[Rfam]
radC RNA: a 140-nucleotide sequence from Variovorax paradoxus.
The family has 148 seed sequences and 500 matches in Rfam 15.1.
The match comes from Rfam's covariance-model search (73 bits).
The family's RNA type in Rfam is cis-regulatory element.
RNA sequence: AUGCUCUCGGCAUGUGUCGCUGCCGUAGCAGCACCAUGCCCGCAGCCAGGGUGUCAAGGCUGCCGUGGGUUCCACCCGCGCCACCCGCCAGUUCGCCUCGGCAUCUUUCCGGCGAACGCUGCCCACCUCGGCACCGAUGC
Number, nucleotide and partner (000 for none) at each position: 001a000002u000003g000004c000005u000006c000007u000008c000009g000010g000011c038012a037013u036014g035015u000016g000017u000018c000019g032020c031021u030022g029023c028024c000025g000026u000027a000028g023029c022030a021031g020032c019033a000034c000035c014036a013037u012038g011039c000040c000041c000042g063043c062044a061045g060046c059047c058048a000049g000050g084051g000052u000053g000054u000055c000056a000057a000058g047059g046060c045061u044062g043063c042064c080065g079066u078067g077068g076069g075070u074071u000072c000073c000074a070075c069076c068077c067078g066079c065080g064081c000082c000083a000084c050085c000086c000087g000088c000089c000090a000091g000092u000093u000094c000095g000096c000097c000098u000099c000100g000101g000102c000103a000104u000105c000106u000107u000108u000109c000110c000111g000112g140113c139114g138115a000116a000117c000118g000119c000120u133121g132122c131123c130124c000125a000126c000127c000128u000129c000130g123131g122132c121133a120134c000135c000136g000137a000138u114139g113140c112